[Rfam]
RNA sequence: CACUCGCCGCCUGGGACUUGGUCUCAACCUGGGACUCUGAAUGGCAUAGGUGAGCAAAGUUUCAGGUGUGCGAGAGU
Numbered sequence: 001c002a003c004u005c006g007c008c009g010c011c012u013g014g015g016a017c018u019u020g021g022u023c024u025c026a027a028c029c030u031g032g033g034a035c036u037c038u039g040a041a042u043g044g045c046a047u048a049g050g051u052g053a054g055c056a057a058a059g060u061u062u063c064a065g066g067u068g069u070g071c072g073a074g075a076g077u
Stems, first nucleotide, its partner, number of pairs: 003074005008068007016060004023054004028050003
Shown here is a 77-nucleotide RNA from Bursaphelenchus xylophilus, a member of the family "mir-87 microRNA precursor family". A search with the family's covariance model found it, with a score of 66 bits. The base pairs follow the family's consensus structure, which was predicted with RNAalifold. The organism belongs to Bursaphelenchus, within Eukaryota.